[Rfam]
RNA sequence: AAGCAUAGAGAACACCCAAGUGUGCUUUGUAGCUCCCUUGGCCUUUAAGUCUGUGCUAGAUUAACGUUUGUAUUUCCCUCUACGUUGGAAAUAUAAUUUACUUUUACACGUAUUCAGAAAUACAGCACAAAA
Numbered sequence: 001a002a003g004c005a006u007a008g009a010g011a012a013c014a015c016c017c018a019a020g021u022g023u024g025c026u027u028u029g030u031a032g033c034u035c036c037c038u039u040g041g042c043c044u045u046u047a048a049g050u051c052u053g054u055g056c057u058a059g060a061u062u063a064a065c066g067u068u069u070g071u072a073u074u075u076c077c078c079u080c081u082a083c084g085u086u087g088g089a090a091a092u093a094u095a096a097u098u099u100a101c102u103u104u105u106a107c108a109c110g111u112a113u114u115c116a117g118a119a120a121u122a123c124a125g126c127a128c129a130a131a132a
Base pairs, nucleotide, nucleotide: 003056004055005054006053007052008051010050014046016041017040018039019038020037022035024033025032026031058073060071062070063069079118080117081116083110084109085108087105088104089103090102092100093099
Rfam assigns this 132-nucleotide sequence from Hymenochirus boettgeri to the family "Small nucleolar RNA SNORA22". ACA22 is a member of the H/ACA class of snoRNA that guide the sites of modification of uridines to pseudouridines. Gene Ontology terms of the family: nucleolus and RNA processing. The family's consensus secondary structure was predicted with RNAfold. It scores 100 bits against the family's covariance model.